[Rfam]
RNA sequence: GCGUCGCCCGUGCGGCGCCCUGGCCUCAACGGGCCAAGCGAAGCGGGGGUGGUGCCGUGUCGGCGCAGCACCACCCCCGCGGU
Number, nucleotide and partner (000 for none) at each position: 001g018002c017003g016004u015005c014006g013007c012008c000009c000010g000011u000012g007013c006014g005015g004016c003017g002018c001019c000020c038021u037022g000023g035024c033025c032026u031027c000028a000029a000030c000031g026032g025033g024034c000035c023036a000037a021038g020039c000040g000041a000042a000043g080044c079045g078046g077047g076048g075049g074050u073051g072052g071053u070054g069055c068056c000057g066058u065059g064060u000061c000062g000063g000064c059065g058066c057067a000068g055069c054070a053071c052072c051073a050074c049075c048076c047077c046078c045079g044080c043081g000082g000083u000
RNA: Streptomyces RNA 6106
Organism: Streptomyces echinoruber